A member of the RNA family "Small nucleolar RNA R12" from Salix viminalis, 79 nucleotides long.
RNA sequence: AUGGCAGAUGAUGAAAUGAAUCAGACGGAUUCCCAUUGAUCUUUCAUUGUGAUAUCGUAACCAGCUACUUCUGAGCUAU
Numbered sequence: 001a002u003g004g005c006a007g008a009u010g011a012u013g014a015a016a017u018g019a020a021u022c023a024g025a026c027g028g029a030u031u032c033c034c035a036u037u038g039a040u041c042u043u044u045c046a047u048u049g050u051g052a053u054a055u056c057g058u059a060a061c062c063a064g065c066u067a068c069u070u071c072u073g074a075g076c077u078a079u
Base pairs, nucleotide, nucleotide: 001079002078003077004076005075
Gene Ontology terms of the family: RNA processing and nucleolus. About the family: snoR12 is a C/D box small nucleolar RNA, which acts as a methylation guide for 25S ribosomal RNA in plants. snoR12 has been alternatively named snoZ44 in Arabidopsis and snoZ131 in rice.